[Rfam]
RNA sequence: GGCUCUGUGAUUAUCUGCCUAAUUUUCAGGCGAUAUACGCUAUUCUGAUAAUCAUCAUGUGGAAGAACUUUUCUAGUAUGAGAGCU
Numbered sequence: 001g002g003c004u005c006u007g008u009g010a011u012u013a014u015c016u017g018c019c020u021a022a023u024u025u026u027c028a029g030g031c032g033a034u035a036u037a038c039g040c041u042a043u044u045c046u047g048a049u050a051a052u053c054a055u056c057a058u059g060u061g062g063a064a065g066a067a068c069u070u071u072u073c074u075a076g077u078a079u080g081a082g083a084g085c086u
Stems, first nucleotide, its partner, number of pairs: 001086005
Dot-bracket structure: (((((............................................................................)))))
Shown here is an 86-nucleotide RNA from Salvia splendens, a member of the family "Small nucleolar RNA U54". From the family's description: U54 is a C/D box small nucleolar RNA, which acts as a methylation guide for 18S ribosomal RNA in plants. It scores 52 bits against the family's covariance model. On this family, see Chen et al., Nucleic Acids Res 2003: "The high diversity of snoRNAs in plants: identification and comparative study of 120 snoRNA genes from Oryza sativa". The base pairs follow the family's consensus structure, which was predicted with PFOLD.